Rfam assigns this 70-nucleotide RNA sequence from Prevotella sp. CAG:924 to the family "Bacteroidetes FopS (family of paralogous sRNAs)". Rfam links the family to the GO term sRNA-mediated gene silencing. It is annotated as a small RNA. On this family, see Ruttiger et al., Nat Commun 2025: "The global RNA-binding protein RbpB is a regulator of polysaccharide utilization in Bacteroides thetaiotaomicron". Rfam describes the family as follows. The RNA-binding protein RbpB and BTncRNA_FopS sRNA are involved in the post-transcription regulation of polysaccharide utilisation loci (PUL). FopS sRNAs function as post-transcriptional repressors by binding to the vicinity of the start codon of the first mRNA of target PUL polycistrons, typically corresponding to the cognate SusC homolog, impeding translation of the respective glycan transporter.
[Rfam]
RNA sequence: GUGUUUUUCAUGGUAUUAGAUUAUUAAGGUUAUGGAAUUAGGUUGUCGUGAGAUAACCUAAUUUUUUUUG
Numbered sequence: 001g002u003g004u005u006u007u008u009c010a011u012g013g014u015a016u017u018a019g020a021u022u023a024u025u026a027a028g029g030u031u032a033u034g035g036a037a038u039u040a041g042g043u044u045g046u047c048g049u050g051a052g053a054u055a056a057c058c059u060a061a062u063u064u065u066u067u068u069u070g
Base pairs, nucleotide, nucleotide: 041058042057043056044055045054046053047052